RNA sequence: GUUAAUAUUUAUUGAAGAGAGCCAUCCAUUAACAGUUUGAAUUUUGAAAAUAUUUUCAUUUAAAAAAAAUGCUGUCAUGGAUUUGCUCUCUUCAAGAAAUUAAAA
Numbered sequence: 001g002u003u004a005a006u007a008u009u010u011a012u013u014g015a016a017g018a019g020a021g022c023c024a025u026c027c028a029u030u031a032a033c034a035g036u037u038u039g040a041a042u043u044u045u046g047a048a049a050a051u052a053u054u055u056u057c058a059u060u061u062a063a064a065a066a067a068a069a070u071g072c073u074g075u076c077a078u079g080g081a082u083u084u085g086c087u088c089u090c091u092u093c094a095a096g097a098a099a100u101u102a103a104a105a
Base pairs, nucleotide, nucleotide: 014093015092016091017090018089020087021086022085025081026080027079028078032075033074035072036071
Description
Shown here is a 105-nucleotide RNA sequence from Meloidogyne graminicola, a member of the family "mir-46/mir-47/mir-281 microRNA precursor family".